A member of the RNA family "Lysine riboswitch aptamer" from Melghirimyces algeriensis, 175 nucleotides long. The organism belongs to Melghirimyces, within Bacteria. The family's consensus secondary structure is taken from published work. Riboswitches are metabolite binding domains within certain messenger RNAs that serve as precision sensors for their corresponding targets. Allosteric rearrangement of mRNA structure is mediated by ligand binding, and this results in modulation of gene expression. This family includes riboswitches that sense lysine in a number of genes involved in lysine metabolism, including lysC.
[Rfam]
RNA sequence: CCUGUGAGUAGAGGUGCGGUCCGCAUGAAUACCUUCCUGGAGAAUCGGCAUCGAAGAAAGGUUGGGAAAGGGCGUUUCGCCGAAGUAGGAGGGGGUGCCGAAACCCCUCUUGCUGGUCGAUUUGCUGAAUAAGGAGUCGACUGUCGCGGCUCUGUCGCGGAGUGCUACAUGAGGA
Numbered sequence: 001c002c003u004g005u006g007a008g009u010a011g012a013g014g015u016g017c018g019g020u021c022c023g024c025a026u027g028a029a030u031a032c033c034u035u036c037c038u039g040g041a042g043a044a045u046c047g048g049c050a051u052c053g054a055a056g057a058a059a060g061g062u063u064g065g066g067a068a069a070g071g072g073c074g075u076u077u078c079g080c081c082g083a084a085g086u087a088g089g090a091g092g093g094g095g096u097g098c099c100g101a102a103a104c105c106c107c108u109c110u111u112g113c114u115g116g117u118c119g120a121u122u123u124g125c126u127g128a129a130u131a132a133g134g135a136g137u138c139g140a141c142u143g144u145c146g147c148g149g150c151u152c153u154g155u156c157g158c159g160g161a162g163u164g165c166u167a168c169a170u171g172a173g174g175a
Base pairs, nucleotide, nucleotide: 006170008168009167010166011165016080017079018078019077022074023073024072032065033064036061037060038059084114085113086112087111088110089109090108091107092106093105094104115142116141117140118139119138120137121136122135123134144160145159146158147157148156149155150154